[Rfam]
RNA sequence: CUCUGUUUCACAUGGUGAUUCAGGGCAAAAGAG
Numbered sequence: 001c002u003c004u005g006u007u008u009c010a011c012a013u014g015g016u017g018a019u020u021c022a023g024g025g026c027a028a029a030a031g032a033g
Stems, first nucleotide, its partner, number of pairs: 001025005008018003

The family of this 33-nucleotide sequence from Paenibacillus ginsengihumi is "L31-Firmicutes ribosomal protein leader". Clan: Ribosomal Protein L31 Leader clan. By type it is a cis-regulatory leader. For this family Rfam cites "Discovery of 20 novel ribosomal leader candidates in bacteria and archaea" (Eckert and Weinberg, BMC Microbiol, 2020). The base pairs follow the family's consensus structure, which is taken from published work.